RNA: Small nucleolar RNA SNORA3/SNORA45 family
Organism: Tauraco erythrolophus
RNA sequence: ACCGAGACUAGAGUCACAUCUCCACAUGUUCGAUUGUCUUGGUGUGCUGUAGUUCUCGGACAUAAACGUCUGAUCCCUGUUCACUGGCUGCGAUCUCUCGUGUCUCUGCCAGCCACUGAAUCAGUGACACUG
Dot-bracket structure: .((((((((..((.((((((...(((........)))...))))))))..))).)))))..........(((((.(.......((((..(.(((.......))).)..)))).....).)))))........
Numbered sequence: 001a002c003c004g005a006g007a008c009u010a011g012a013g014u015c016a017c018a019u020c021u022c023c024a025c026a027u028g029u030u031c032g033a034u035u036g037u038c039u040u041g042g043u044g045u046g047c048u049g050u051a052g053u054u055c056u057c058g059g060a061c062a063u064a065a066a067c068g069u070c071u072g073a074u075c076c077c078u079g080u081u082c083a084c085u086g087g088c089u090g091c092g093a094u095c096u097c098u099c100g101u102g103u104c105u106c107u108g109c110c111a112g113c114c115a116c117u118g119a120a121u122c123a124g125u126g127a128c129a130c131u132g
Stems, first nucleotide, its partner, number of pairs: 002059005007053003012048002015046006024037003070124005076118001084112004090106001092104003